[Rfam]
RNA: c-di-GMP-I-GGC riboswitch aptamer
RNA sequence: GCCGAAAACGCUAAACCAACCGUGAGGUUGGGACAGAAAGCCAAGGGUCUCACCGAGACAGCCGGGAUGCCGAAA
Numbered sequence: 001g002c003c004g005a006a007a008a009c010g011c012u013a014a015a016c017c018a019a020c021c022g023u024g025a026g027g028u029u030g031g032g033a034c035a036g037a038a039a040g041c042c043a044a045g046g047g048u049c050u051c052a053c054c055g056a057g058a059c060a061g062c063c064g065g066g067a068u069g070c071c072g073a074a075a
Stems, first nucleotide, its partner, number of pairs: 003072002011036002016031006034061001039068001041066002045063002047059003